[Rfam]
RNA sequence: AAUAAACAGGUUCGUAACCAUCCCUGUAUAAAAAACUAAGGAGAG
Numbered sequence: 001a002a003u004a005a006a007c008a009g010g011u012u013c014g015u016a017a018c019c020a021u022c023c024c025u026g027u028a029u030a031a032a033a034a035a036c037u038a039a040g041g042a043g044a045g
Stems, first nucleotide, its partner, number of pairs: 006027005015038002
Dot-bracket structure: .....(((((....[[......))))).........]].......
Description:
Rfam assigns this 45-nucleotide RNA sequence from Phocicoccus pinnipedialis to the family "PreQ1 (pre queuosine) riboswitch aptamer". Rfam's curators write: This family is a bacterial riboswitch that binds to the metabolite preQ1, an intermediate in the biosynthesis of the modified nucleoside queuosine from GTP. One example of this riboswitch is located in the leader of the Bacillus subtilis ykvJKLM (queCDEF) operon which encodes four genes necessary for queuosine production. PreQ1 binding to the riboswitch aptamer is thought to induce premature transcription termination within the leader to down-regulate expression of these genes. A reference for the family is Schroeder et al. (2020), "Analysis of a preQ1-I riboswitch in effector-free and bound states reveals a metabolite-programmed nucleobase-stacking spine that controls gene regulation", Nucleic Acids Res. Pairs were carried over by alignment from the consensus structure. The source organism's lineage runs through Bacteria, Bacillati, Bacilli, Salinicoccaceae and Phocicoccus.